[Rfam]
This 112-nucleotide sequence from Hordeum vulgare belongs to the Rfam family "mir-399 microRNA precursor family". Rfam 15.1 lists 2,396 matches to the family in 221 species. The organism belongs to Hordeum vulgare, within Eukaryota. On this family, see Jones-Rhoades and Bartel, Mol Cell 2004: "Computational Identification of Plant MicroRNAs and Their Targets, Including a Stress-Induced miRNA". It scores 68 bits against the family's covariance model. Its family is annotated with RISC complex and miRNA-mediated post-transcriptional gene silencing in the Gene Ontology.
RNA sequence: AGGUGCAUCGCAGGGCAGCUGCUCCAUUGGCAGAGAGAUGGAUGUGGAUUUAGCCCUCUUUGCUUCGCUCUUUUGCCUGUCUGCCAAAGGAGAUUUGCCCCGCGAUCCAUCA
Numbered sequence: 001a002g003g004u005g006c007a008u009c010g011c012a013g014g015g016c017a018g019c020u021g022c023u024c025c026a027u028u029g030g031c032a033g034a035g036a037g038a039u040g041g042a043u044g045u046g047g048a049u050u051u052a053g054c055c056c057u058c059u060u061u062g063c064u065u066c067g068c069u070c071u072u073u074u075g076c077c078u079g080u081c082u083g084c085c086a087a088a089g090g091a092g093a094u095u096u097g098c099c100c101c102g103c104g105a106u107c108c109a110u111c112a
Stems, first nucleotide, its partner, number of pairs: 005108001007106003011102001013100006022092004028086007036078001